[Rfam]
RNA sequence: UGCAUUGCACUUGGGGCAAUGACGCAUCUAGUGAGGUUCUAACCGAGGCGUGUCUAUUGCUGGUUGAAAACUAUUUCCUGAUCCCCUCUUAGACUUGGGUCCAACUCAAGCCUUUGAGAAUUCCUGGAAGGAUUCCCUUUGGGGUAAAGUC
Numbered sequence: 001u002g003c004a005u006u007g008c009a010c011u012u013g014g015g016g017c018a019a020u021g022a023c024g025c026a027u028c029u030a031g032u033g034a035g036g037u038u039c040u041a042a043c044c045g046a047g048g049c050g051u052g053u054c055u056a057u058u059g060c061u062g063g064u065u066g067a068a069a070a071c072u073a074u075u076u077c078c079u080g081a082u083c084c085c086c087u088c089u090u091a092g093a094c095u096u097g098g099g100u101c102c103a104a105c106u107c108a109a110g111c112c113u114u115u116g117a118g119a120a121u122u123c124c125u126g127g128a129a130g131g132a133u134u135c136c137c138u139u140u141g142g143g144g145u146a147a148a149g150u151c
Stems, first nucleotide, its partner, number of pairs: 021054005028048002035044003086118003091113002094110006131151004
U4 spliceosomal RNA: a 151-nucleotide RNA from Medicago truncatula. Rfam classes the family as a spliceosomal small nuclear RNA.